RNA sequence: UCGAAGCUCCAACAAAUGGAUAAGACUUGGUCUUAGUGUAUAGGAGUUUUUGAAACUCAAAAAAUAUAACUAUAAGGAGCAAUAAACUCUUUCUUGUGAUAGAACAAGAGGGUUUAUUGCUCCUUUAUU
Numbered sequence: 001u002c003g004a005a006g007c008u009c010c011a012a013c014a015a016a017u018g019g020a021u022a023a024g025a026c027u028u029g030g031u032c033u034u035a036g037u038g039u040a041u042a043g044g045a046g047u048u049u050u051u052g053a054a055a056c057u058c059a060a061a062a063a064a065u066a067u068a069a070c071u072a073u074a075a076g077g078a079g080c081a082a083u084a085a086a087c088u089c090u091u092u093c094u095u096g097u098g099a100u101a102g103a104a105c106a107a108g109a110g111g112g113u114u115u116a117u118u119g120c121u122c123c124u125u126u127a128u129u
Stems, first nucleotide, its partner, number of pairs: 008020003063126001074125012087112003091108002095104001
A member of the RNA family "Plastid-psbA-1 3UTR RNA" from Aloysia citrodora, 129 nucleotides long.
The base pairs follow the family's consensus structure, which was predicted with LocARNA.
About the family: Plastid psbA-1 is a non-coding RNA (ncRNA) present in plastids. It was identified in inverted repeat sequences in the 3 prime untranslate region (3UTR) of photosystem II quinone-binding protein (psbA).
Taxonomically the source falls in Aloysia (Eukaryota, Tracheophyta, Spermatophyta, lamiids).